Description:
Streptococcus sRNA SpF59 (ldcC RNA): a 56-nucleotide sequence. The sequence is in the family's curated seed alignment. The family's consensus secondary structure was predicted with mfold.
RNA sequence: UGACCAUUCCCGCAAAAGGGAAUCAAGGCCAUACGGACAGCCGGGUCAACUGCCGA
Numbered sequence: 001u002g003a004c005c006a007u008u009c010c011c012g013c014a015a016a017a018g019g020g021a022a023u024c025a026a027g028g029c030c031a032u033a034c035g036g037a038c039a040g041c042c043g044g045g046u047c048a049a050c051u052g053c054c055g056a
Base pairs, nucleotide, nucleotide: 001048002047003046004045005044006023007022008021009020010019011018